This 71-nucleotide sequence from an Acidimicrobiia bacterium belongs to the Rfam family "Fluoride riboswitch aptamer (crcB RNA motif)".
[Rfam]
RNA sequence: CCGGAGGAAGGCGAUGAAGCCCGCCUGAGAACCGCCGCAUCACACACGCGGCUGAUGGCUUCUACCGGAAG
Numbered sequence: 001c002c003g004g005a006g007g008a009a010g011g012c013g014a015u016g017a018a019g020c021c022c023g024c025c026u027g028a029g030a031a032c033c034g035c036c037g038c039a040u041c042a043c044a045c046a047c048g049c050g051g052c053u054g055a056u057g058g059c060u061u062c063u064a065c066c067g068g069a070a071g
Base pairs, nucleotide, nucleotide: 010025011024012023013022016062017061018060019059020058021057034052035051036050037049